[Rfam]
RNA sequence: UUUAAGUGCAGCCAUGGUUUUCCGCGUCCAACUUUGAUCGUCCGUUUUUUUUAAAAAGAGUUUGAAAAAAAUUUAAAAACAUAAGUCACGAGUAAAAUACUAUUUAUGUUUUAUCAUCUCAUAACAACAAAAAUACUAAUUAUUAUUUUUUUUUCAAAUAAGACGGACGAUCAAAAUUAGGCACGGAAAACUCAUCGUUGCACUUAAA
Dot-bracket structure: ..........................((.((.((((((((((((((((.(...........................................................................................................).)))))))))))))))).)).))...........................
A member of the RNA family "MIR812 microRNA precursor family" from Oryza barthii, 208 nucleotides long.
Rfam 15.1 lists 57,451 matches to the family in 24 species.
The match comes from Rfam's covariance-model search (127 bits).
Lineage of the source: Eukaryota > Streptophytina > Embryophyta > Oryzoideae > Oryza.
Its family is annotated with RISC complex and miRNA-mediated post-transcriptional gene silencing in the Gene Ontology.